Shown here is a 114-nucleotide RNA from Corynebacterium urealyticum, a member of the family "TPP riboswitch aptamer (THI element)". Lineage of the source: Bacteria > Actinomycetes > Mycobacteriales > Corynebacterium > Corynebacterium urealyticum. The family's consensus secondary structure is taken from published work. The match comes from Rfam's covariance-model search (64 bits). Vitamin B(1) in its active form thiamin pyrophosphate (TPP) is an essential coenzyme that is synthesised by coupling of pyrimidine and thiazole moieties in bacteria. The previously detected thiamin-regulatory element, thi box was extended, resulting in a new, highly conserved RNA secondary structure, the THI element, which is widely distributed in eubacteria and also occurs in some archaea.
[Rfam]
RNA sequence: GUACCGAAAUACGGGCGCCCCUGAUGUGGCUGGGGCUGAGAUCGCGCAUGGCAGCGCGGAACCGUCUGAACCUGUCUGGUUAGCACCAGCGAAGGAAGUUGGAGGGGCUCUUUA
Numbered sequence: 001g002u003a004c005c006g007a008a009a010u011a012c013g014g015g016c017g018c019c020c021c022u023g024a025u026g027u028g029g030c031u032g033g034g035g036c037u038g039a040g041a042u043c044g045c046g047c048a049u050g051g052c053a054g055c056g057c058g059g060a061a062c063c064g065u066c067u068g069a070a071c072c073u074g075u076c077u078g079g080u081u082a083g084c085a086c087c088a089g090c091g092a093a094g095g096a097a098g099u100u101g102g103a104g105g106g107g108c109u110c111u112u113u114a
Base pairs, nucleotide, nucleotide: 008100009099010098011065012064013063014062016059017036018035019034020033021032043058044057045056046055047054071095072094073093076089077088078087079086